About this RNA:
The family of this 140-nucleotide RNA sequence from Klebsiella indica is "Group II catalytic intron D1-D4-4". The pairing is the family consensus, mapped onto this sequence. A reference for the family is Bonen and Vogel (2001), "The ins and outs of group II introns", Trends Genet. A search with the family's covariance model found it, with a score of 91 bits. Rfam describes the family as follows. Group II introns are found in rRNA, tRNA and mRNA of organelles in fungi, plants and protists, and also in mRNA in bacteria.

[Rfam]
RNA sequence: CCGUCGGUGAAAGUCCGACCCGGCUAACUCUCGCUCCGGCCGGAAGUACAGGGGGCGGUCCAGGAGGUAACAAAUGGGCUGAAGCUCUCCCUGAAACGGCUUCUUAAGGAAGUCAACGGGUUAUGCGGGCCGUAACGUGA
Numbered sequence: 001c002c003g004u005c006g007g008u009g010a011a012a013g014u015c016c017g018a019c020c021c022g023g024c025u026a027a028c029u030c031u032c033g034c035u036c037c038g039g040c041c042g043g044a045a046g047u048a049c050a051g052g053g054g055g056c057g058g059u060c061c062a063g064g065a066g067g068u069a070a071c072a073a074a075u076g077g078g079c080u081g082a083a084g085c086u087c088u089c090c091c092u093g094a095a096a097c098g099g100c101u102u103c104u105u106a107a108g109g110a111a112g113u114c115a116a117c118g119g120g121u122u123a124u125g126c127g128g129g130c131c132g133u134a135a136c137g138u139g140a
Stems, first nucleotide, its partner, number of pairs: 020043005051090005056081006066071001098114006116133003